Record summary
The record is a 132-nucleotide sequence from Galbula dea, which matches "Small nucleolar RNA SNORA69" in Rfam. U69 is a member of the H/ACA class of small nucleolar RNAs (snoRNAs) which act as guides in the the modification of uridines to pseudouridines. Taxonomically the source falls in Galbula (Eukaryota, Metazoa, Coelurosauria, Piciformes). Pairs were carried over by alignment from the consensus structure, which was predicted with PFOLD. Rfam classes the family as an H/ACA-box small nucleolar RNA. Its family is annotated with RNA processing and nucleolus in the Gene Ontology.

RNA sequence: AAAGCAGGCUGCAAUUGCAGUCCUUCAUUCUGUGGGAGUACUGCCAUUUUCCUGCUGAGAGUAACCCUGUUAAGUCUGUCUUUGGUUUCACCUAUAAGGUGGUGGAACCAUUUCUUCUUAACAUGGACAAGU
Numbered sequence: 001a002a003a004g005c006a007g008g009c010u011g012c013a014a015u016u017g018c019a020g021u022c023c024u025u026c027a028u029u030c031u032g033u034g035g036g037a038g039u040a041c042u043g044c045c046a047u048u049u050u051c052c053u054g055c056u057g058a059g060a061g062u063a064a065c066c067c068u069g070u071u072a073a074g075u076c077u078g079u080c081u082u083u084g085g086u087u088u089c090a091c092c093u094a095u096a097a098g099g100u101g102g103u104g105g106a107a108c109c110a111u112u113u114c115u116u117c118u119u120a121a122c123a124u125g126g127a128c129a130a131g132u
Stems, first nucleotide, its partner, number of pairs: 003056006018043004023038004065126002068123007083110010